The family of this 54-nucleotide RNA from Sinocyclocheilus rhinocerous is "UnaL2 LINE 3' element".
Rfam describes the family as follows. The eel long interspersed element (LINE) UnaL2 and its partner short interspersed element (SINE) share a conserved 3' tail containing a stem-loop that is critical for their retrotransposition.
On this family, see Baba et al., RNA 2004: "Solution structure of an RNA stem-loop derived from the 3' conserved region of eel LINE UnaL2".
Pairs were carried over by alignment from the consensus structure, which is taken from published work.
[Rfam]
RNA sequence: AUUGUCCUCGUUUGUAAGUCGCUUUGGAUAAAAGCGUCUGUUAAAUGACAAUGU
Numbered sequence: 001a002u003u004g005u006c007c008u009c010g011u012u013u014g015u016a017a018g019u020c021g022c023u024u025u026g027g028a029u030a031a032a033a034g035c036g037u038c039u040g041u042u043a044a045a046u047g048a049c050a051a052u053g054u
Base pairs, nucleotide, nucleotide: 013043014041015040016039020036021035022034023033024032025031